RNA sequence: CUACUUUGGUCUCUCUUCAAAUCGUAUAAAUCUUUUGCCUUUUAAUAAAGUUUUCCUUAGAGAGGGACUACUUCAUGAGUCACGAAGCAUUUCAGUUAUUGCCAAUGUGGAGUCAUAUUG
Numbered sequence: 001c002u003a004c005u006u007u008g009g010u011c012u013c014u015c016u017u018c019a020a021a022u023c024g025u026a027u028a029a030a031u032c033u034u035u036u037g038c039c040u041u042u043u044a045a046u047a048a049a050g051u052u053u054u055c056c057u058u059a060g061a062g063a064g065g066g067a068c069u070a071c072u073u074c075a076u077g078a079g080u081c082a083c084g085a086a087g088c089a090u091u092u093c094a095g096u097u098a099u100u101g102c103c104a105a106u107g108u109g110g111a112g113u114c115a116u117a118u119u120g
Stems, first nucleotide, its partner, number of pairs: 003080004009068009019058001028054003032050004103120007

Rfam assigns this 120-nucleotide RNA from Rhodnius prolixus to the family "U5 spliceosomal RNA".
Rfam describes the family as follows. U5 RNA is a component of both types of known spliceosome. The precise function of this molecule is unknown, though it is known that the 5' loop is required for splice site selection and p220 binding, and that both the 3' stem-loop and the Sm site are important for Sm protein binding and cap methylation.
Rfam classes the family as a spliceosomal small nuclear RNA.
Taxonomically the source falls in Rhodnius (Eukaryota, Protostomia, Hexapoda, Eumetabola).
The family's consensus secondary structure is taken from published work.